[Rfam]
RNA sequence: AGCGAGGCUAGAGUCACGCCUGGACACUACCAUUGCCCUGGUGUGCUAGAGUGCUCGCAGAGGAAAUAUCUUUGCUUAUUCAUUGGCUGUAGUCUGUUGUGGCCCAGUCAAUCACCAACUCAGAUACAUUA
Number, nucleotide and partner (000 for none) at each position: 001a000002g058003c057004g056005a055006g054007g052008c051009u050010a000011g000012a047013g046014u000015c045016a044017c043018g042019c041020c040021u000022g000023g037024a000025c035026a034027c000028u000029a000030c000031c000032a000033u000034u026035g025036c000037c023038c000039u000040g020041g019042u018043g017044u016045g015046c013047u012048a000049g000050a009051g008052u007053g000054c006055u005056c004057g003058c002059a000060g000061a000062g000063g000064a000065a000066a000067u000068a000069u000070c123071u122072u000073u000074g119075c000076u117077u000078a000079u000080u000081c000082a112083u111084u110085g109086g108087c000088u106089g105090u000091a000092g000093u101094c000095u000096g000097u000098u000099g000100u000101g093102g000103c000104c000105c089106a088107g000108u086109c085110a084111a083112u082113c000114a000115c000116c000117a076118a000119c074120u000121c000122a071123g070124a000125u000126a000127c000128a000129u000130u000131a000
RNA: Small nucleolar RNA SNORA3/SNORA45 family